[Rfam]
RNA sequence: GGUGCCGCGAGGCACUCAGCACGAAAGCAGUCCGGAGCGAAGGCACGACCGUAGGAACACGAACAGGCAGCGAGGCCGCGAUGCGGGCGAUGAGCGUGCGAGAGAACGCGAAAUCCCACUGUCACCGAAAGACGCAUCGGGUAGAGCCUGACGGCGCGGGCCGAAAGUUCAUGCA
Numbered sequence: 001g002g003u004g005c006c007g008c009g010a011g012g013c014a015c016u017c018a019g020c021a022c023g024a025a026a027g028c029a030g031u032c033c034g035g036a037g038c039g040a041a042g043g044c045a046c047g048a049c050c051g052u053a054g055g056a057a058c059a060c061g062a063a064c065a066g067g068c069a070g071c072g073a074g075g076c077c078g079c080g081a082u083g084c085g086g087g088c089g090a091u092g093a094g095c096g097u098g099c100g101a102g103a104g105a106a107c108g109c110g111a112a113a114u115c116c117c118a119c120u121g122u123c124a125c126c127g128a129a130a131g132a133c134g135c136a137u138c139g140g141g142u143a144g145a146g147c148c149u150g151a152c153g154g155c156g157c158g159g160g161c162c163g164a165a166a167g168u169u170c171a172u173g174c175a
Stems, first nucleotide, its partner, number of pairs: 001016006032173001037168002042162003046158002049154004064150005075142003079139007089115003094109004

The record is a 175-nucleotide RNA sequence, which matches "Group II catalytic intron D1-D4-3" in Rfam.
Gene Ontology term of the family: Group II intron splicing.
Group II introns are found in rRNA, tRNA and mRNA of organelles in fungi, plants and protists, and also in mRNA in bacteria.
The family has 406 seed sequences and 4,274 matches in Rfam 15.1.